Shown here is an 80-nucleotide RNA from Macaca mulatta, a member of the family "mir-573 microRNA precursor family". The source organism's lineage runs through Eukaryota, Theria, Eutheria, Catarrhini and Macaca. The family's consensus secondary structure was predicted with RNAalifold.
RNA sequence: UGUCUCCCUGAAGUGAUGCAUAACCGAUCAGGAUCUACUCAUGUCAACUUUGGUAAAGUUAUGUUGCUUGUCAGGGUGAG
Number, nucleotide and partner (000 for none) at each position: 001u000002g000003u079004c078005u000006c076007c075008c074009u073010g072011a071012a068013g067014u066015g065016a064017u000018g000019c063020a062021u061022a060023a059024c058025c000026g000027a054028u053029c052030a051031g050032g048033a000034u046035c000036u000037a044038c043039u000040c000041a000042u000043g038044u037045c000046a034047a000048c032049u000050u031051u030052g029053g028054u027055a000056a000057a000058g024059u023060u022061a021062u020063g019064u016065u015066g014067c013068u012069u000070g000071u011072c010073a009074g008075g007076g006077u000078g004079a003080g000